[Rfam]
RNA sequence: GGUCAUGAGCGACAGCCAUGCGGCCCCGGCCGGCUGUCCGGCAACCCUCCGUCCGUGGCGGGGUGCUCCGGGUGAGGACCAGGCCGUGUUCCAGAAGGUCCACGGCAAGCGCGGACC
Numbered sequence: 001g002g003u004c005a006u007g008a009g010c011g012a013c014a015g016c017c018a019u020g021c022g023g024c025c026c027c028g029g030c031c032g033g034c035u036g037u038c039c040g041g042c043a044a045c046c047c048u049c050c051g052u053c054c055g056u057g058g059c060g061g062g063g064u065g066c067u068c069c070g071g072g073u074g075a076g077g078a079c080c081a082g083g084c085c086g087u088g089u090u091c092c093a094g095a096a097g098g099u100c101c102a103c104g105g106c107a108a109g110c111g112c113g114g115a116c117c
Base pairs, nucleotide, nucleotide: 001080002079003078004077009039011038012037013036014035015034016033022031023030040067041066042065045063046062047061049058050057083106084105085104086103087102088101091098092097
A member of the RNA family "SAM (S-adenosyl methionine) riboswitch aptamer" from Streptomyces seoulensis, 117 nucleotides long. The family has 40 seed sequences and 2,360 matches in Rfam 15.1. About the family: SAM-IV is a mRNA element that regulates gene expression via direct sensing of S-adenosylmethionine (SAM or AdoMet). SAM-IV riboswitches share conserved nucleotide positions with the previously described SAM-I riboswitches sequence analysis and molecular recognition experiments suggest that SAM-I and SAM-IV riboswitches share similar ligand binding sites, but have different scaffolds. It scores 106 bits against the family's covariance model.